Rfam assigns this 78-nucleotide RNA sequence from Pseudogymnoascus sp. VKM F-4516 to the family "tRNA".
Taxonomically the source falls in Pseudogymnoascus (Eukaryota, saccharomyceta, sordariomyceta, Thelebolales).
Its family is annotated with triplet codon-amino acid adaptor activity in the Gene Ontology.
Transfer RNA (tRNA) molecules are approximately 80 nucleotides in length. Their secondary structure includes four short double-helical elements and three loops (D, anti-codon, and T loops).

[Rfam]
RNA sequence: GUUCCUAUAGCUCAGCGGUAGAGCGCGGCCUUAAUAAAGAAUUUGCCGGUGCCUACGGUUCGAAUCCGUAUGGGAACG
Numbered sequence: 001g002u003u004c005c006u007a008u009a010g011c012u013c014a015g016c017g018g019u020a021g022a023g024c025g026c027g028g029c030c031u032u033a034a035u036a037a038a039g040a041a042u043u044u045g046c047c048g049g050u051g052c053c054u055a056c057g058g059u060u061c062g063a064a065u066c067c068g069u070a071u072g073g074g075a076a077c078g
Stems, first nucleotide, its partner, number of pairs: 001077007010024004026048004054070005